[Rfam]
RNA sequence: GUACAUAUGGCAGUACCAUUCAAAGAGCUAUGACAAUGACGCUGUUUAUAGCUCUGAAAAUGGCGCUGCCAUCUGCAC
Numbered sequence: 001g002u003a004c005a006u007a008u009g010g011c012a013g014u015a016c017c018a019u020u021c022a023a024a025g026a027g028c029u030a031u032g033a034c035a036a037u038g039a040c041g042c043u044g045u046u047u048a049u050a051g052c053u054c055u056g057a058a059a060a061u062g063g064c065g066c067u068g069c070c071a072u073c074u075g076c077a078c
Stems, first nucleotide, its partner, number of pairs: 002077001004075001007072003011068003016063005024055008

This 78-nucleotide RNA sequence from Gallus gallus belongs to the Rfam family "mir-458 microRNA precursor family". The base pairs follow the family's consensus structure, which was predicted with RNAalifold. Its family is annotated with RISC complex and miRNA-mediated post-transcriptional gene silencing in the Gene Ontology. The literature on the family includes a 2008 paper in Genome Res by Glazov et al., "A microRNA catalog of the developing chicken embryo identified by a deep sequencing approach". Rfam 15.1 lists 1,011 matches to the family in 491 species.